RNA: Small nucleolar RNA snoR138
Organism: Papaver somniferum
RNA sequence: UUUUCCUUCGAAUAACUGGAUACGGAAAUUUGAGACCACAUUCGGUUCAGACAAGGGAAUAUGAAAACUAUAUGAGGGAACUGUGUUGGAAUUUAUUUCUUCACCUUUACGUUUCCUCUUGAAUCAAUCUUAAUGGAAAGGAUUGAUUUUCCUUUCUUUAGAUUGUUCUAACAUUU
Numbered sequence: 001u002u003u004u005c006c007u008u009c010g011a012a013u014a015a016c017u018g019g020a021u022a023c024g025g026a027a028a029u030u031u032g033a034g035a036c037c038a039c040a041u042u043c044g045g046u047u048c049a050g051a052c053a054a055g056g057g058a059a060u061a062u063g064a065a066a067a068c069u070a071u072a073u074g075a076g077g078g079a080a081c082u083g084u085g086u087u088g089g090a091a092u093u094u095a096u097u098u099c100u101u102c103a104c105c106u107u108u109a110c111g112u113u114u115c116c117u118c119u120u121g122a123a124u125c126a127a128u129c130u131u132a133a134u135g136g137a138a139a140g141g142a143u144u145g146a147u148u149u150u151c152c153u154u155u156c157u158u159u160a161g162a163u164u165g166u167u168c169u170a171a172c173a174u175u176u
Base pairs, nucleotide, nucleotide: 003059004058005057006056007055008054014047015046016045017044018043019042020041021040024037025036070169072167074118075117076116079113080112081111083110087103088102089101090100125165126164127163128162129161